[Rfam]
RNA sequence: CUUUAGGCUUCACUAGAAGCCACCAAAACUAUUUUUCCCGCCAAGU
Numbered sequence: 001c002u003u004u005a006g007g008c009u010u011c012a013c014u015a016g017a018a019g020c021c022a023c024c025a026a027a028a029c030u031a032u033u034u035u036u037c038c039c040g041c042c043a044a045g046u
Stems, first nucleotide, its partner, number of pairs: 006021006
Rfam assigns this 46-nucleotide RNA from Eimeria tenella to the family "Histone 3' UTR stem-loop".
Rfam classes the family as a cis-regulatory element.
The organism belongs to Eimeria, within Eukaryota.
Rfam 15.1 lists 44,596 matches to the family in 976 species.
Pairs were carried over by alignment from the consensus structure, which is taken from published work.